RNA sequence: AGUCCCGUGGUGUAGUGGCCAAUCAUAUGGGCCUUUGGAGCCCAUGACAGCGGUUCGAAUCCGCUCGGGACUA
Numbered sequence: 001a002g003u004c005c006c007g008u009g010g011u012g013u014a015g016u017g018g019c020c021a022a023u024c025a026u027a028u029g030g031g032c033c034u035u036u037g038g039a040g041c042c043c044a045u046g047a048c049a050g051c052g053g054u055u056c057g058a059a060u061c062c063g064c065u066c067g068g069g070a071c072u073a
Base pairs, nucleotide, nucleotide: 001072002071003070004069005068006067007066010026011025012024028044029043030042031041032040049065050064051063052062053061
Dot-bracket structure: (((((((..(((...........))).(((((.......)))))....(((((.......)))))))))))).

This 73-nucleotide RNA sequence from Natronolimnohabitans innermongolicus belongs to the Rfam family "tRNA".
Taxonomically the source falls in Natronolimnohabitans innermongolicus (Archaea, Methanobacteriati, Halobacteriales, Natrialbaceae).
The base pairs follow the family's consensus structure, which is taken from published work.
From the family's description: Transfer RNA (tRNA) molecules are approximately 80 nucleotides in length.